[Rfam]
RNA sequence: ACCGGCCAAUGACGACUUGUGUAUAAAUCCACUCGCUGGAGUAAACAGGUCUGAUGCUUGCUGGU
Numbered sequence: 001a002c003c004g005g006c007c008a009a010u011g012a013c014g015a016c017u018u019g020u021g022u023a024u025a026a027a028u029c030c031a032c033u034c035g036c037u038g039g040a041g042u043a044a045a046c047a048g049g050u051c052u053g054a055u056g057c058u059u060g061c062u063g064g065u
Stems, first nucleotide, its partner, number of pairs: 001065005014051007022043002029039003